[Rfam]
RNA sequence: GCAGCCAUAACACCACGAUGCUCGUUCCGCACAGAGCCUCAGUAGGCUUUUUUUCACGAGCGGGUAAGGUCUGAGUAUGCUCCCAUGAUUGGCUCUAGCUGGGUCCAGGAUUAACUUCACCUGAGCAACAUAUCAGAAAAUAGCCAGCAACGCAUCUGUAUCUCUAAGAUCUAUGGUUGCCUCUUUCGAGAUAAGGAGAGGGAGCUAUAGGGAGAGGACUGCGCUUAUGGCUUGGAAGUUGUUGCGGAGCUGGAGUGCUUUGGGCUUGUUCUGAAUGCUUUUAUCGGCGACGUGGUGUUUCUUUCGAAACGCCAGGCACGCUCCGACUCAUUGGCUACGGCCUCUUGGGUUUUGUGCCUUCUCGAGUUCUCAUUUUUGGACUUCGAGGCGAUGGGUGUACAUCUUCAAUCUGACCUGACAGUUGGAAAUUGCACCGAGCGUACCGCGCCGGGCGUCCCCUUUUCCCUACCUCCCACAUUUUGCCUGACGGUAUCGCCUCAAGUACGAGGAAGAGUCACAUUCUCCAAGCUCAGAGUGUUCUUUAGUGCACUUCGUGGUGCGCGUUGGAAGUCAUCUUUUGGUUACUCCCGACGCGCGACUCGAUUCAGACUACUCUAUGUCUGC
Numbered sequence: 001g002c003a004g005c006c007a008u009a010a011c012a013c014c015a016c017g018a019u020g021c022u023c024g025u026u027c028c029g030c031a032c033a034g035a036g037c038c039u040c041a042g043u044a045g046g047c048u049u050u051u052u053u054u055c056a057c058g059a060g061c062g063g064g065u066a067a068g069g070u071c072u073g074a075g076u077a078u079g080c081u082c083c084c085a086u087g088a089u090u091g092g093c094u095c096u097a098g099c100u101g102g103g104u105c106c107a108g109g110a111u112u113a114a115c116u117u118c119a120c121c122u123g124a125g126c127a128a129c130a131u132a133u134c135a136g137a138a139a140a141u142a143g144c145c146a147g148c149a150a151c152g153c154a155u156c157u158g159u160a161u162c163u164c165u166a167a168g169a170u171c172u173a174u175g176g177u178u179g180c181c182u183c184u185u186u187c188g189a190g191a192u193a194a195g196g197a198g199a200g201g202g203a204g205c206u207a208u209a210g211g212g213a214g215a216g217g218a219c220u221g222c223g224c225u226u227a228u229g230g231c232u233u234g235g236a237a238g239u240u241g242u243u244g245c246g247g248a249g250c251u252g253g254a255g256u257g258c259u260u261u262g263g264g265c266u267u268g269u270u271c272u273g274a275a276u277g278c279u280u281u282u283a284u285c286g287g288c289g290a291c292g293u294g295g296u297g298u299u300u301c302u303u304u305c306g307a308a309a310c311g312c313c314a315g316g317c318a319c320g321c322u323c324c325g326a327c328u329c330a331u332u333g334g335c336u337a338c339g340g341c342c343u344c345u346u347g348g349g350u351u352u353u354g355u356g357c358c359u360u361c362u363c364g365a366g367u368u369c370u371c372a373u374u375u376u377u378g379g380a381c382u383u384c385g386a387g388g389c390g391a392u393g394g395g396u397g398u399a400c401a402u403c404u405u406c407a408a409u410c411u412g413a414c415c416u417g418a419c420a421g422u423u424g425g426a427a428a429u430u431g432c433a434c435c436g437a438g439c440g441u442a443c444c445g446c447g448c449c450g451g452g453c454g455u456c457c458c459c460u461u462u463u464c465c466c467u468a469c470c471u472c473c474c475a476c477a478u479u480u481u482g483c484c485u486g487a488c489g490g491u492a493u494c495g496c497c498u499c500a501a502g503u504a505c506g507a508g509g510a511a512g513a514g515u516c517a518c519a520u521u522c523u524c525c526a527a528g529c530u531c532a533g534a535g536u537g538u539u540c541u542u543u544a545g546u547g548c549a550c551u552u553c554g555u556g557g558u559g560c561g562c563g564u565u566g567g568a569a570g571u572c573a574u575c576u577u578u579u580g581g582u583u584a585c586u587c588c589c590g591a592c593g594c595g596c597g598a599c600u601c602g603a604u605u606c607a608g609a610c611u612a613c614u615c616u617a618u619g620u621c622u623g624c
Base pairs, nucleotide, nucleotide: 001624002623003622004621007618008617009616012558013557014556015555016554017553018552020061021060022059023058024057034049035048036047037046038045039044071608072607073606074605075604080249081248082247083246091105092104093103094102095101106123107122108121109120125245126244127243128242129241130240143231144230145229559596560595561594562593563592564591565590566589567588
Shown here is a 624-nucleotide sequence from Collybiopsis luxurians, a member of the family "Nuclear RNase P".
The match comes from Rfam's covariance-model search (63 bits).
Rfam classes the family as a ribozyme.
NCBI's taxonomy places the organism under Eukaryota, Fungi, Agaricomycetidae, Marasmiineae, Collybiopsis luxurians.
Gene Ontology terms of the family: ribonuclease P activity, ribonuclease P complex and tRNA processing.
Rfam describes the family as follows. Ribonuclease P (RNase P) is a ubiquitous endoribonuclease, found in archaea, bacteria and eukarya as well as chloroplasts and mitochondria.